[Rfam]
RNA sequence: AUACUUACCUGGCAGGGGUGAUACCAUGAUCAAAAAGGUGGUUUGCCCAAGAUGAGGCUCAGCCAUUGCACUUAGGCUGUGCUGACCCUUGCGAAUUCCCCAAAUGUGGGAAUCUCGACUGCAUAAUUUCUGAUAGUGGGGAUCAUGCUUAUGCUUCCUCCCCU
Numbered sequence: 001a002u003a004c005u006u007a008c009c010u011g012g013c014a015g016g017g018g019u020g021a022u023a024c025c026a027u028g029a030u031c032a033a034a035a036a037g038g039u040g041g042u043u044u045g046c047c048c049a050a051g052a053u054g055a056g057g058c059u060c061a062g063c064c065a066u067u068g069c070a071c072u073u074a075g076g077c078u079g080u081g082c083u084g085a086c087c088c089u090u091g092c093g094a095a096u097u098c099c100c101c102a103a104a105u106g107u108g109g110g111a112a113u114c115u116c117g118a119c120u121g122c123a124u125a126a127u128u129u130c131u132g133a134u135a136g137u138g139g140g141g142a143u144c145a146u147g148c149u150u151a152u153g154c155u156u157c158c159u160c161c162c163c164u
Base pairs, nucleotide, nucleotide: 012122013121014120015119016048017047018046019045020044021043023042024041025040026039027038049090050089051088054086056083057082058081060079061078062077063076064075092117093116094115095113096112097111099109100108138163139162140161141160142159145156147154148153
Overview: U1 spliceosomal RNA: a 164-nucleotide RNA from Clarias magur. By type it is a spliceosomal small nuclear RNA. The base pairs follow the family's consensus structure, which is taken from published work.